[Rfam]
RNA sequence: CAAAGAAACCCCUAGGGUUCCGGAUGUGUUAUAAAAAAUGACGCAUCGACUGGUCCAAGAGGGGUUCGUGCUCAGGUUCCUGGGCGUCACACGGAGGGAUAAAAACCCGGGCGGU
Numbered sequence: 001c002a003a004a005g006a007a008a009c010c011c012c013u014a015g016g017g018u019u020c021c022g023g024a025u026g027u028g029u030u031a032u033a034a035a036a037a038a039u040g041a042c043g044c045a046u047c048g049a050c051u052g053g054u055c056c057a058a059g060a061g062g063g064g065u066u067c068g069u070g071c072u073c074a075g076g077u078u079c080c081u082g083g084g085c086g087u088c089a090c091a092c093g094g095a096g097g098g099a100u101a102a103a104a105a106c107c108c109g110g111g112c113g114g115u
Stems, first nucleotide, its partner, number of pairs: 007066006015056002020053002022050001023047010068087007090110001092113001096108003
This 115-nucleotide RNA sequence from Paenalicyclobacillus cellulosilyticus belongs to the Rfam family "Guanidine-I riboswitch aptamer". Lineage of the source: Bacteria > Bacilli > Caryophanales > Alicyclobacillaceae > Paenalicyclobacillus.